[Rfam]
RNA sequence: AACCCAGGUCUGCUGACUCCUAGUCCAGUGCUUGUGAUGGCUGGUGGGCCCUGAACUAGGGGUCUGGAGGCCUGGGUUUG
Numbered sequence: 001a002a003c004c005c006a007g008g009u010c011u012g013c014u015g016a017c018u019c020c021u022a023g024u025c026c027a028g029u030g031c032u033u034g035u036g037a038u039g040g041c042u043g044g045u046g047g048g049c050c051c052u053g054a055a056c057u058a059g060g061g062g063u064c065u066g067g068a069g070g071c072c073u074g075g076g077u078u079u080g
Base pairs, nucleotide, nucleotide: 003076004075005074006073007072008071010069011068013066015064016063017062018061019060020059021058023056024055026053027052028051030049031048032047033046
Rfam assigns this 80-nucleotide RNA sequence from Sus scrofa to the family "mir-345 microRNA precursor family".
Its family is annotated with miRNA-mediated post-transcriptional gene silencing and RISC complex in the Gene Ontology.
On this family, see Chiang et al., Genes Dev 2010: "Mammalian microRNAs: experimental evaluation of novel and previously annotated genes".
The base pairs follow the family's consensus structure, which was predicted with RNAalifold.
Rfam's curators put it in the seed alignment.